[Rfam]
RNA: Small nucleolar RNA snoR26
RNA sequence: CGAGCAUCAGUGAUGAGCAAAUUCAAAAUUCCUUGCACUUUUAUUCCCCAUGAAAAAGCUUAUGGGGAAUUAUUUUUCUGAGGUGCUC
Numbered sequence: 001c002g003a004g005c006a007u008c009a010g011u012g013a014u015g016a017g018c019a020a021a022u023u024c025a026a027a028a029u030u031c032c033u034u035g036c037a038c039u040u041u042u043a044u045u046c047c048c049c050a051u052g053a054a055a056a057a058g059c060u061u062a063u064g065g066g067g068a069a070u071u072a073u074u075u076u077u078c079u080g081a082g083g084u085g086c087u088c
Base pairs, nucleotide, nucleotide: 002088003087004086005085006084007083008082